[Rfam]
A member of the RNA family "Glycine riboswitch aptamer" from Caldimonas brevitalea, 94 nucleotides long. Pairs were carried over by alignment from the consensus structure.
RNA sequence: UUUUCGCCGACUGGAGAGUGGCCGUCACGGCCCACCGAAGGGGCAGGCUGCAGGCGCAGCUGAAACUCUCAGGUUCAAGGACAGGGGGAGAGGC
Numbered sequence: 001u002u003u004u005c006g007c008c009g010a011c012u013g014g015a016g017a018g019u020g021g022c023c024g025u026c027a028c029g030g031c032c033c034a035c036c037g038a039a040g041g042g043g044c045a046g047g048c049u050g051c052a053g054g055c056g057c058a059g060c061u062g063a064a065a066c067u068c069u070c071a072g073g074u075u076c077a078a079g080g081a082c083a084g085g086g087g088g089a090g091a092g093g094c
Stems, first nucleotide, its partner, number of pairs: 007088002011084003020032004034074003037070002041068003047061001